RNA: MIR1507 microRNA precursor family
RNA sequence: CAGUGUUUGGCAGAGGUGUAUGGAGUGAGAGAAGGGAAAGGGUAUUUUCCGAUUCUGUCGUUACUCUCUUCCCUCUCUCAUUCCAUACAUCGUCUGACGAACGUAUC
Number, nucleotide and partner (000 for none) at each position: 001c000002a000003g000004u000005g102006u101007u100008u099009g098010g000011c096012a095013g094014a093015g091016g090017u089018g088019u087020a086021u085022g084023g083024a082025g081026u080027g079028a078029g077030a076031g075032a074033a000034g073035g072036g071037a070038a069039a000040g000041g000042g000043u000044a000045u000046u000047u000048u000049c000050c060051g059052a058053u057054u000055c000056u000057g053058u052059c051060g050061u000062u000063a000064c000065u000066c000067u000068c000069u038070u037071c036072c035073c034074u032075c031076u030077c029078u028079c027080a026081u025082u024083c023084c022085a021086u020087a019088c018089a017090u016091c015092g000093u014094c013095u012096g011097a000098c009099g008100a007101a006102c005103g000104u000105a000106u000107c000